[Rfam]
RNA sequence: ACCGCCGCCGGACGGAGCGGGUCGCGAGGGUUGGGGAACCCGAUGACCGGGUCGCUGCCGAGACGGUUCCGGGUCUUAGGGAGCCCGGGGCCGGUCGUUCUGGCGAAGGAG
Numbered sequence: 001a002c003c004g005c006c007g008c009c010g011g012a013c014g015g016a017g018c019g020g021g022u023c024g025c026g027a028g029g030g031u032u033g034g035g036g037a038a039c040c041c042g043a044u045g046a047c048c049g050g051g052u053c054g055c056u057g058c059c060g061a062g063a064c065g066g067u068u069c070c071g072g073g074u075c076u077u078a079g080g081g082a083g084c085c086c087g088g089g090g091c092c093g094g095u096c097g098u099u100c101u102g103g104c105g106a107a108g109g110a111g
Stems, first nucleotide, its partner, number of pairs: 006105007013060003018054003022050003028041005062096003065092003070087005